[Rfam]
RNA sequence: UAUCGUAAGCAUAAGUAGGUUCUUAUUCGGCUAUGUUUUCAAUUCAAGCCGCAUUAAGCCUACUUAGACUGGCGACA
Number, nucleotide and partner (000 for none) at each position: 001u077002a000003u075004c074005g073006u072007a000008a070009g069010c000011a000012u066013a065014a064015g063016u062017a061018g060019g059020u058021u057022c000023u000024u000025a054026u053027u000028c051029g050030g049031c048032u047033a000034u046035g045036u000037u000038u000039u000040c000041a000042a000043u000044u000045c035046a034047a032048g031049c030050c029051g028052c000053a026054u025055u000056a000057a021058g020059c019060c018061u017062a016063c015064u014065u013066a012067g000068a000069c009070u008071g000072g006073c005074g004075a003076c000077a001

Annotation:
This 77-nucleotide RNA sequence from Bombyx mori belongs to the Rfam family "mir-2797 microRNA precursor family". Pairs were carried over by alignment from the consensus structure, which was predicted with RNAalifold. The sequence is in the family's curated seed alignment. Gene Ontology terms of the family: miRNA-mediated post-transcriptional gene silencing and RISC complex.